[Rfam]
Rfam assigns this 54-nucleotide sequence from Coregonus sp. 'balchen' to the family "UnaL2 LINE 3' element". The literature on the family includes a 2004 paper in RNA by Baba et al., "Solution structure of an RNA stem-loop derived from the 3' conserved region of eel LINE UnaL2". The eel long interspersed element (LINE) UnaL2 and its partner short interspersed element (SINE) share a conserved 3' tail containing a stem-loop that is critical for their retrotransposition. Presumably, the first step of retrotransposition is the recognition of their 3' tails by UnaL2-encoded reverse transcriptase. Taxonomically the source falls in Coregonus (Eukaryota, Deuterostomia, Euteleostomi, Coregoninae). The match comes from Rfam's covariance-model search (65 bits). Gene Ontology term of the family: transposition, RNA-mediated. Pairs were carried over by alignment from the consensus structure, which is taken from published work.

RNA sequence: UUCAAGACUAACUGUAAGUUGCUCUGGAUAAGAGCGUCUGCUAAAUGACUAAAA
Numbered sequence: 001u002u003c004a005a006g007a008c009u010a011a012c013u014g015u016a017a018g019u020u021g022c023u024c025u026g027g028a029u030a031a032g033a034g035c036g037u038c039u040g041c042u043a044a045a046u047g048a049c050u051a052a053a054a
Base pairs, nucleotide, nucleotide: 013043014041015040016039020036021035022034023033024032025031